[Rfam]
RNA sequence: GGCAGGUGAUGUCUAGUAAUUUCACGAUGGUCUUCAGAGGGCCACCGCGGGCACUGCUGAGAAAGCUGUUAUGCAUAGAUGAUGCCAGAAG
Numbered sequence: 001g002g003c004a005g006g007u008g009a010u011g012u013c014u015a016g017u018a019a020u021u022u023c024a025c026g027a028u029g030g031u032c033u034u035c036a037g038a039g040g041g042c043c044a045c046c047g048c049g050g051g052c053a054c055u056g057c058u059g060a061g062a063a064a065g066c067u068g069u070u071a072u073g074c075a076u077a078g079a080u081g082a083u084g085c086c087a088g089a090a091g
Base pairs, nucleotide, nucleotide: 001086002085003084004083
The record is a 91-nucleotide RNA from Sus scrofa, which matches "Small nucleolar RNA SNORD35" in Rfam. On this family, see Nicoloso et al., J Mol Biol 1996: "Intron-encoded, antisense small nucleolar RNAs: the characterization of nine novel species points to their direct role as guides for the 2'-O-ribose methylation of rRNAs". Rfam links the family to the GO terms RNA processing and nucleolus. From the family's description: U35 is a C/D box snoRNA located in intron 6 of ribosomal protein L13A and intron 3 of ribosomal protein S11 in humans and at homologous positions in mouse and chicken ribosomal protein genes. U35 guides the methylation of 2'-O-ribose sites in 28S rRNA. Rfam classes the family as a C/D-box small nucleolar RNA. The family is grouped with related families in Rfam's "SNORD35 clan".